[Rfam]
RNA: THF (Tetrahydrofolate) riboswitch aptamer
Organism: Clostridium sp. 'deep sea'
RNA sequence: AACAGAGUAGAUGUUUUGCGUAAAGUGCUAAAGAAUGGGAUGUAGUCUUUAGACGAAGAAUAAUUUUCGCGAUAAAACAUCGCGUCCGCUGUA
Numbered sequence: 001a002a003c004a005g006a007g008u009a010g011a012u013g014u015u016u017u018g019c020g021u022a023a024a025g026u027g028c029u030a031a032a033g034a035a036u037g038g039g040a041u042g043u044a045g046u047c048u049u050u051a052g053a054c055g056a057a058g059a060a061u062a063a064u065u066u067u068c069g070c071g072a073u074a075a076a077a078c079a080u081c082g083c084g085u086c087c088g089c090u091g092u093a
Stems, first nucleotide, its partner, number of pairs: 002092004010081009019071003025054002028052007038087005058068003